[Rfam]
Nucleotides: 226
Base pairs, nucleotide, nucleotide: 010036011035012034013033014032017030018029019028020027023192037089038088039087040086043084044083045082046081047079048078049074050073051072052071053070054069055068056067057066058065059064111220112218115216116215117214118213119212136211137210138209139208140207141206142168143167144166147162148161149160173205174204175203176202177201178200179199180198181197182196183195
Number, partner (000 for none) and nucleotide at each position: 001000a002000a003000a004000u005000c006000c007000a008000u009000u010036c011035u012034g013033a014032a015000a016000a017030g018029a019028u020027u021000a022000a023192g024000u025000c026000a027020a028019a029018u030017c031000a032014u033013u034012c035011a036010g037089u038088a039087g040086c041000g042000a043084g044083u045082c046081a047079u048078g049074g050073a051072g052071a053070u054069a055068a056067a057066u058065a059064g060000g061000u062000a063000a064059c065058u066057a067056u068055u069054u070053a071052u072051u073050u074049u075000a076000a077000g078048c079047g080000u081046u082045g083044a084043c085000a086040g087039c088038u089037a090000g091000g092000u093000u094000g095000u096000a097000g098000g099000c100000u101000u102000g103000a104000a105000u106000g107000u108000g109000a110000a111220u112218g113000a114000g115216c116215c117214u118213c119212g120000u121000a122000a123000u124000a125000a126000g127000u128000a129000u130000a131000a132000a133000g134000u135000u136211g137210g138209g139208a140207a141206g142168g143167c144166u145000g146000a147162c148161g149160g150000u151000g152000u153000c154000g155000g156000u157000u158000c159000u160149c161148u162147g163000a164000a165000a166144a167143g168142c169000a170000a171000u172000a173205u174204u175203a176202u177201g178200g179199u180198a181197g182196g183195c184000g185000a186000u187000a188000a189000u190000g191000a192023c193000g194000a195183g196182u197181c198180u199179a200178c201177u202176a203175u204174a205173a206141c207140u208139u209138c210137c211136c212119c213118g214117g215116g216115g217000g218112c219000a220111a221000a222000g223000a224000g225000c226000c
Shown here is a 226-nucleotide RNA sequence from Clostridium beijerinckii, a member of the family "Group II catalytic intron D1-D4-6". The pairing is the family consensus, mapped onto this sequence. The family has 174 seed sequences and 1,617 matches in Rfam 15.1. Group II introns are found in rRNA, tRNA and mRNA of organelles in fungi, plants and protists, and also in mRNA in bacteria.